[Rfam]
RNA: Vault RNA
RNA sequence: GCGCUGGCAUAGCUCAGCGGUUACUUUACUUGGAUUUUUCUGAAGACGAGGAGGGCUCGAACCCCCAGCGCCGUCUAGCGUUUUC
Numbered sequence: 001g002c003g004c005u006g007g008c009a010u011a012g013c014u015c016a017g018c019g020g021u022u023a024c025u026u027u028a029c030u031u032g033g034a035u036u037u038u039u040c041u042g043a044a045g046a047c048g049a050g051g052a053g054g055g056c057u058c059g060a061a062c063c064c065c066c067a068g069c070g071c072c073g074u075c076u077a078g079c080g081u082u083u084u085c
Stems, first nucleotide, its partner, number of pairs: 002080006012069003017065001019063002025061003